[Rfam]
RNA sequence: ACGUCUUAGACUGCUGGGUCAGGGAAACAACGAUUCAGGGUGAUGCCCGAAUCCUCACUGCCGAUGUGAGACAAAUUUCGGAGCAGGCAGAGGUUACCCCGGGAUGACGGACCUACUCUGUGCGAUGCUUGGGAGCAGAGAUGGGUG
Numbered sequence: 001a002c003g004u005c006u007u008a009g010a011c012u013g014c015u016g017g018g019u020c021a022g023g024g025a026a027a028c029a030a031c032g033a034u035u036c037a038g039g040g041u042g043a044u045g046c047c048c049g050a051a052u053c054c055u056c057a058c059u060g061c062c063g064a065u066g067u068g069a070g071a072c073a074a075a076u077u078u079c080g081g082a083g084c085a086g087g088c089a090g091a092g093g094u095u096a097c098c099c100c101g102g103g104a105u106g107a108c109g110g111a112c113c114u115a116c117u118c119u120g121u122g123c124g125a126u127g128c129u130u131g132g133g134a135g136c137a138g139a140g141a142u143g144g145g146u147g
Stems, first nucleotide, its partner, number of pairs: 004023003008019001032053005038047002054070005088147001093142003097138001099133002102130002105127002108124002111121002
Dot-bracket structure: ...(((.(..........).)))........(((((.((......)).)))))(((((.......))))).................(....(((.(.((.((.((.((.((.......)).)).)).)).))....).)))....)
RNA: U12 minor spliceosomal RNA
Organism: Phyllostomus discolor